This 78-nucleotide RNA from Otolemur garnettii belongs to the Rfam family "Small nucleolar RNA U2-19".
On this family, see Tycowski et al., Curr Biol 2004: "Guide RNAs with 5' Caps and Novel Box C/D snoRNA-like Domains for Modification of snRNAs in Metazoa".
By type it is a C/D-box small nucleolar RNA.
[Rfam]
RNA sequence: UGUUUCAGAUGAAACAGCCAAAUCUGAAUAUCAGAAGACACUGCAGUCUACCAAUGCAUGAUCUCUACAGUUCUGAGA
Numbered sequence: 001u002g003u004u005u006c007a008g009a010u011g012a013a014a015c016a017g018c019c020a021a022a023u024c025u026g027a028a029u030a031u032c033a034g035a036a037g038a039c040a041c042u043g044c045a046g047u048c049u050a051c052c053a054a055u056g057c058a059u060g061a062u063c064u065c066u067a068c069a070g071u072u073c074u075g076a077g078a
Stems, first nucleotide, its partner, number of pairs: 029056003036049004